The family of this 95-nucleotide sequence from Prolemur simus is "Y RNA".
The organism belongs to Prolemur, within Eukaryota.
By type it is a non-coding RNA gene.
The family's consensus secondary structure is taken from published work.
Nucleotides: 095
Base pairs, nucleotide, nucleotide: 001091002090003089005088006087007086010084011083015079016075017074018073019072020071021070033061034060035059037057038056
Number, partner (000 for none) and nucleotide at each position: 001091g002090g003089c004000u005088a006087g007086u008000g009000c010084a011083a012000u013000g014000g015079u016075a017074g018073u019072g020071g021070g022000u023000u024000a025000u026000g027000a028000g029000a030000a031000c032000c033061u034060a035059u036000u037057a038056a039000c040000a041000u042000u043000a044000g045000u046000a047000u048000c049000a050000c051000u052000a053000a054000a055000g056038u057037u058000g059035g060034u061033a062000u063000a064000c065000a066000a067000c068000c069000c070021c071020c072019c073018a074017c075016u076000g077000c078000u079015a080000a081000a082000u083011u084010u085000g086007a087006c088005u089003g090002u091001c092000u093000u094000a095000a